[Rfam]
RNA: Small nucleolar RNA snR60/Z15/Z230/Z193/J17
RNA sequence: UCAAGCAUCCUGAUGAUUUGAAAAACAAUGCAUAGUUCAUCUGAGGCAUUACAACCCCUGAAUGAAACAAAAUCACAAAUGUCUUUCGCUCCUAUCUGAAUUUGCUUCC
Numbered sequence: 001u002c003a004a005g006c007a008u009c010c011u012g013a014u015g016a017u018u019u020g021a022a023a024a025a026c027a028a029u030g031c032a033u034a035g036u037u038c039a040u041c042u043g044a045g046g047c048a049u050u051a052c053a054a055c056c057c058c059u060g061a062a063u064g065a066a067a068c069a070a071a072a073u074c075a076c077a078a079a080u081g082u083c084u085u086u087c088g089c090u091c092c093u094a095u096c097u098g099a100a101u102u103u104g105c106u107u108c109c
Stems, first nucleotide, its partner, number of pairs: 004106004